[Rfam]
RNA sequence: UGUGUCAACGGUACCGGAACGAAGUGAGGAUAAGGAGUUGACAUAUUCAGCGCU
Numbered sequence: 001u002g003u004g005u006c007a008a009c010g011g012u013a014c015c016g017g018a019a020c021g022a023a024g025u026g027a028g029g030a031u032a033a034g035g036a037g038u039u040g041a042c043a044u045a046u047u048c049a050g051c052g053c054u
Stems, first nucleotide, its partner, number of pairs: 001045009
Dot-bracket structure: (((((((((...........................))))))))).........
The record is a 54-nucleotide RNA sequence from Bacillus subtilis, which matches "Bacillus-plasmid RNA" in Rfam.
The family's consensus secondary structure is taken from published work.
The organism belongs to Bacillus, within Bacteria.
The sequence is in the family's curated seed alignment.